[Rfam]
RNA sequence: AGAGUCGCCCGGAUCACCGCGUUGCAGAAAUGCACCGAGGAAAGUCCGGACUUCACAGAGCAAGGUGGUGGGUAACGCCCACCUGGAGCAAUCCACGGGAAAGUGCAACAGAAAGUAAACCGCCAAUAGCAAUAUUGGUAAGGGUGAAACGGCGGUGUAAGAGACCACCAGUACGAGUAGCAAUAUUCGUAGCUAUGUAAACCCCACCUGAAGCAAGACCAAGAAGAUAGUGCGUUGCUCGCGCAAGCUAUCGGGUAGGUUGCUUGAAUCUGUAAGUAAUUACAGAUCUAGAUGGAUGGUGAUCGGUUCGCAAGAACUACAGGAUCCGGCUUAUAGGGCGACUCUUCUA
Numbered sequence: 001a002g003a004g005u006c007g008c009c010c011g012g013a014u015c016a017c018c019g020c021g022u023u024g025c026a027g028a029a030a031u032g033c034a035c036c037g038a039g040g041a042a043a044g045u046c047c048g049g050a051c052u053u054c055a056c057a058g059a060g061c062a063a064g065g066u067g068g069u070g071g072g073u074a075a076c077g078c079c080c081a082c083c084u085g086g087a088g089c090a091a092u093c094c095a096c097g098g099g100a101a102a103g104u105g106c107a108a109c110a111g112a113a114a115g116u117a118a119a120c121c122g123c124c125a126a127u128a129g130c131a132a133u134a135u136u137g138g139u140a141a142g143g144g145u146g147a148a149a150c151g152g153c154g155g156u157g158u159a160a161g162a163g164a165c166c167a168c169c170a171g172u173a174c175g176a177g178u179a180g181c182a183a184u185a186u187u188c189g190u191a192g193c194u195a196u197g198u199a200a201a202c203c204c205c206a207c208c209u210g211a212a213g214c215a216a217g218a219c220c221a222a223g224a225a226g227a228u229a230g231u232g233c234g235u236u237g238c239u240c241g242c243g244c245a246a247g248c249u250a251u252c253g254g255g256u257a258g259g260u261u262g263c264u265u266g267a268a269u270c271u272g273u274a275a276g277u278a279a280u281u282a283c284a285g286a287u288c289u290a291g292a293u294g295g296a297u298g299g300u301g302a303u304c305g306g307u308u309c310g311c312a313a314g315a316a317c318u319a320c321a322g323g324a325u326c327c328g329g330c331u332u333a334u335a336g337g338g339c340g341a342c343u344c345u346u347c348u349a
Base pairs, nucleotide, nucleotide: 001345002344003343004342005341006340007339008338009337010336011334012304013303014302015301016300017299018298020037021036023034024033025032026031042332043331044330046329047328048327049326050325051213052212053211054210058240059239060238061237063209064208065207066206067205068082069081070080071079072078083097084095085094086093087092098204099203103202104201105198106197107196120143121142122139123138124137125136126135127134128133151169152168154166155165156164171193172191173190174189175188176187177186178185179184217261218260219259220258226252227251228250229249230248231245232244233243234242235241268287269286270285271284272283273282274281275280
About this RNA:
Rfam assigns this 349-nucleotide RNA sequence from Candidatus Planktophila sulfonica to the family "Bacterial RNase P class A". A search with the family's covariance model found it, with a score of 313 bits. A reference for the family is Frank and Pace (1998), "Ribonuclease P: unity and diversity in a tRNA processing ribozyme", Annu Rev Biochem. NCBI's taxonomy places the organism under Bacteria, Actinomycetota, Candidatus Nanopelagicales, Candidatus Nanopelagicaceae, Candidatus Planktophila. Rfam's curators write: Ribonuclease P (RNase P) is a ubiquitous endoribonuclease, found in archaea, bacteria and eukarya as well as chloroplasts and mitochondria.